The family of this 62-nucleotide sequence from Nicotiana sylvestris is "Plastid-psbA-3 3UTR RNA".
It is annotated as a cis-regulatory element.
Its Rfam clan is "Plastid-psbA 3UTR RNA clan".
For this family Rfam cites "Retrograde signaling in plants: A critical review focusing on the GUN pathway and beyond" (Richter et al., Plant Commun, 2023).
Plastid psbA-3 is a non-coding RNA (ncRNA) present in plastids. It was identified in inverted repeat sequences in the 3 prime untranslate region (3UTR) of photosystem II quinone-binding protein (psbA).
NCBI's taxonomy places the organism under Eukaryota, Spermatophyta, eudicotyledons, Nicotianoideae, Nicotiana.
Pairs were carried over by alignment from the consensus structure, which was predicted with LocARNA.
[Rfam]
RNA sequence: AAAGGAGCAAUAGUACCCUCUUGACUUGAUAGAACAAGAAAAUGAUUAUUGCUCCUUUCUUU
Numbered sequence: 001a002a003a004g005g006a007g008c009a010a011u012a013g014u015a016c017c018c019u020c021u022u023g024a025c026u027u028g029a030u031a032g033a034a035c036a037a038g039a040a041a042a043u044g045a046u047u048a049u050u051g052c053u054c055c056u057u058u059c060u061u062u
Base pairs, nucleotide, nucleotide: 001058002057003056004055005054006053007052008051009050010049011048012047013046014045019039020038021037022036023035